[Rfam]
RNA: Lysine riboswitch aptamer
RNA sequence: UAAAGGAAGAGAGGUGCAACACUCAGGCAACUUAUUUUAGGGAACUAGGCCCGUUUGAGAAUAAGUGAUGGGAGUGCUUGCCGAGGUGUGAAUUCACUAGAACGGAAUGAUCAUCGGCUGAGUCAGGUUGAAUCCUAUCAGCUGUCGUUUAAAACUUGUGUUUUAAAUGGAGUGCUCUAAAUUGU
Number, nucleotide and partner (000 for none) at each position: 001u000002a000003a000004a000005g000006g000007a000008a178009g177010a176011g175012a000013g000014g000015u000016g081017c080018a079019a078020c000021a075022c074023u073024c072025a000026g000027g000028c000029a000030a066031c065032u064033u063034a062035u061036u060037u059038u000039a000040g000041g000042g000043a000044a000045c000046u000047a000048g000049g000050c000051c000052c000053g000054u000055u000056u000057g000058a000059g037060a036061a035062u034063a033064a032065g031066u030067g000068a000069u000070g000071g000072g024073a023074g022075u021076g000077c000078u019079u018080g017081c016082c000083g000084a000085g115086g114087u113088g112089u000090g000091a000092a108093u107094u106095c105096a000097c000098u000099a000100g000101a000102a000103c000104g000105g095106a094107a093108u092109g000110a000111u000112c088113a087114u086115c085116g143117g142118c141119u140120g139121a138122g000123u000124c000125a136126g135127g134128u000129u000130g000131a000132a000133u000134c127135c126136u125137a000138u121139c120140a119141g118142c117143u116144g000145u170146c169147g168148u167149u166150u165151a164152a163153a162154a000155c000156u000157u000158g000159u000160g000161u000162u153163u152164u151165a150166a149167a148168u147169g146170g145171a000172g000173u000174g000175c011176u010177c009178u008179a000180a000181a000182u000183u000184g000185u000